The family of this 65-nucleotide sequence from Pseudonocardia thermophila is "Actino-pnp RNA". Lineage of the source: Bacteria > Bacillati > Actinomycetota > Actinomycetes > Pseudonocardia. A search with the family's covariance model found it, with a score of 69 bits. The family's consensus secondary structure is taken from published work.

RNA sequence: GCCGGUCCUCGGUAGUGGUUCCCGGGCCCGAAGCCGGUUCCCGGGGACUUCGAUCGAUGACCGGC
Numbered sequence: 001g002c003c004g005g006u007c008c009u010c011g012g013u014a015g016u017g018g019u020u021c022c023c024g025g026g027c028c029c030g031a032a033g034c035c036g037g038u039u040c041c042c043g044g045g046g047a048c049u050u051c052g053a054u055c056g057a058u059g060a061c062c063g064g065c
Stems, first nucleotide, its partner, number of pairs: 001065007009057005017049010028037002
Dot-bracket structure: (((((((.(((((...((((((((((.((......))..))))))))))...))))).)))))))